The family of this 358-nucleotide sequence from Neomoorella thermoacetica is "transfer-messenger RNA". Pairs were carried over by alignment from the consensus structure, which is taken from published work. NCBI's taxonomy places the organism under Bacteria, Bacillota, Clostridia, Neomoorella, Neomoorella thermoacetica. The sequence is in the family's curated seed alignment. The family's RNA type in Rfam is non-coding RNA gene.
[Rfam]
RNA sequence: GGGGGCGUAAUGGUUUCGACGGGGGUAGCAUUGGCAGUAGUAGCCAGGCGAGAUCCCACCGGCUCGUUAAACGGUGGAACGGCUAUUAAGUGCCGACGAUAAUUUAGCUCUGGCUGCUUAAUUAAAAAGUAGCCCAUCCGUCUGGUCCUGGCCUGCGGGGACCAGUACCGGGUGUCAAAUCUAGCAGGCUACCGGCAAGGCCCCGGCCCGGGGGCCUGAAGGGAAUCUCAAGCGGGCUGGCCCGAGGGUAUCCGGUUUCCGGGAGACCCGACGGCGAGAUUGAAAACGGAAACUAUCCUGGUAGAAGCUACUGUGGAUGUACCUUCGGACGGGGGUUCGACUCCCCCCGCCUCCACCA
Dot-bracket structure: (((((((............((((((((...((.((((((((..((((([[[[...((((((.]]]].....))))))..................................((((((((.......))))))))[[[[[[.[[.[[[[.(((((((..]]]].]]...]]]]]].........))))))).[[..[[.[.....((((((.....]]]..]]..........))))))...[[[..[[..[[..(((((((]]....]]..]]]............)))))))...))))).....)))))))).))..))))))))...(((((.......))))))))))))....